This 104-nucleotide sequence from Aliivibrio fischeri belongs to the Rfam family "Vibrio RNA AS9". A reference for the family is Liu et al. (2009), "Experimental discovery of sRNAs in Vibrio cholerae by direct cloning, 5S/tRNA depletion and parallel sequencing", Nucleic Acids Res. From the family's description: Identified by direct cloning an parallel sequencing experiments with 5S/tRNA depletion. Confirmed by Northern blot. Taxonomically the source falls in Aliivibrio fischeri (Bacteria, Gammaproteobacteria, Vibrionales, Aliivibrio). The family's consensus secondary structure was predicted with RNAfold.
RNA sequence: UUUUUCACAACGAUCUUUUGUCAUCGUUAAACAGAUUAAACCACGUCCAUGAGUUGCCAUAAAGUUAAUGGCUUCAGGAGUGAUUUUCUCAGCGGCAAUAAUUA
Numbered sequence: 001u002u003u004u005u006c007a008c009a010a011c012g013a014u015c016u017u018u019u020g021u022c023a024u025c026g027u028u029a030a031a032c033a034g035a036u037u038a039a040a041c042c043a044c045g046u047c048c049a050u051g052a053g054u055u056g057c058c059a060u061a062a063a064g065u066u067a068a069u070g071g072c073u074u075c076a077g078g079a080g081u082g083a084u085u086u087u088c089u090c091a092g093c094g095g096c097a098a099u100a101a102u103u104a
Stems, first nucleotide, its partner, number of pairs: 005056001007054002009028006035050002040046002066104004071096002075092001077090001078088003